[Rfam]
Shown here is an 81-nucleotide RNA from Firmicutes bacterium CAG:475, a member of the family "Gut-1 RNA".

RNA sequence: CAGUGAUAUUGUGCCUAACGGCACAGUGAGAUUGUUGCUACGCAACAGUGAUAUGCACGCAAAGCGUGCGUGAUAUUGCAC
Dot-bracket structure: .......((((((((....))))))))...((((((.......))))))...(((((((.....)))))))..........

Background
The family's consensus secondary structure is taken from published work. The family's RNA type in Rfam is small RNA.